Shown here is a 48-nucleotide RNA from Corynebacterium halotolerans, a member of the family "Guanidine-II riboswitch aptamer (mini-ykkC)". On this family, see Weinberg et al., Nucleic Acids Res 2007: "Identification of 22 candidate structured RNAs in bacteria using the CMfinder comparative genomics pipeline". A search with the family's covariance model found it, with a score of 45 bits. Lineage of the source: Bacteria > Actinomycetota > Actinomycetes > Corynebacteriaceae > Corynebacterium halotolerans. The family's consensus secondary structure is taken from published work.
[Rfam]
RNA sequence: GGGUCAGGACGACCUGACCCCGGGGUAGCCCCGGCGGGGACGGCCCCG
Numbered sequence: 001g002g003g004u005c006a007g008g009a010c011g012a013c014c015u016g017a018c019c020c021c022g023g024g025g026u027a028g029c030c031c032c033g034g035c036g037g038g039g040a041c042g043g044c045c046c047c048g
Base pairs, nucleotide, nucleotide: 001020002019003018004017005016006015007014008013035048036047037046038045039044